[Rfam]
RNA sequence: CUUACGGGACGACCCGCAAGCGCAUCUCACAACGGGGACGGCCCC
Numbered sequence: 001c002u003u004a005c006g007g008g009a010c011g012a013c014c015c016g017c018a019a020g021c022g023c024a025u026c027u028c029a030c031a032a033c034g035g036g037g038a039c040g041g042c043c044c045c
Stems, first nucleotide, its partner, number of pairs: 001020003005016004034045004
Dot-bracket structure: (((.((((....)))).))).............((((....))))

Rfam assigns this 45-nucleotide RNA sequence from Cedecea neteri to the family "Guanidine-II riboswitch aptamer (mini-ykkC)". Simpler in structure and has fewer highly conserved nucleotide positions than the ykkC-yxkD leader. Despite this each of its two stem-loop structures directly bind free guanidine. Its family is annotated with regulation of gene expression in the Gene Ontology. The organism belongs to Cedecea, within Bacteria.